[Rfam]
RNA sequence: GGCUGCAAGUUUGAGGCCACAGCAGAAGUGCUCAUAACAUGGCCUGUUGGAUUUGAACAAAUCUACAAAUUCUGCU
Number, nucleotide and partner (000 for none) at each position: 001g000002g000003c000004u000005g000006c000007a000008a000009g000010u000011u000012u000013g000014a000015g044016g043017c042018c041019a000020c000021a076022g075023c074024a073025g072026a071027a070028g040029u039030g038031c000032u000033c000034a000035u000036a000037a000038c030039a029040u028041g018042g017043c016044c015045u000046g000047u000048u065049g064050g063051a062052u061053u060054u059055g000056a000057a000058c000059a054060a053061a052062u051063c050064u049065a048066c000067a000068a000069a000070u027071u026072c025073u024074g023075c022076u021
The record is a 76-nucleotide sequence from Alligator sinensis, which matches "Mammalian CPEB3 ribozyme" in Rfam. Rfam links the family to the GO term RNA nuclease activity. Pairs were carried over by alignment from the consensus structure, which is taken from published work. The organism belongs to Alligator, within Eukaryota.